Group II catalytic intron D1-D4-4: a 137-nucleotide RNA sequence from Mycobacterium tuberculosis.

[Rfam]
RNA sequence: CUGCCGGUGGGAGUCCGGUCCGGGUAGCUGUCAGGAGGCCCGGUAGCAGGCUGGCCGCUUGGUUUGGAAACGGGCAGGGUCGAAGCCCAGCGUCGAAAGCCCCGUUGGGGGAAGCAACUGAGCGGUCCGUAACGCGA
Numbered sequence: 001c002u003g004c005c006g007g008u009g010g011g012a013g014u015c016c017g018g019u020c021c022g023g024g025u026a027g028c029u030g031u032c033a034g035g036a037g038g039c040c041c042g043g044u045a046g047c048a049g050g051c052u053g054g055c056c057g058c059u060u061g062g063u064u065u066g067g068a069a070a071c072g073g074g075c076a077g078g079g080u081c082g083a084a085g086c087c088c089a090g091c092g093u094c095g096a097a098a099g100c101c102c103c104g105u106u107g108g109g110g111g112a113a114g115c116a117a118c119u120g121a122g123c124g125g126u127c128c129g130u131a132a133c134g135c136g137a
Base pairs, nucleotide, nucleotide: 020043021042022041023040024039050091051090052089053088054087056082057081058079059078060077065072066071101111102110103109114130115129
The base pairs follow the family's consensus structure. Rfam 15.1 lists 840 matches to the family in 506 species. From the family's description: Group II introns are found in rRNA, tRNA and mRNA of organelles in fungi, plants and protists, and also in mRNA in bacteria.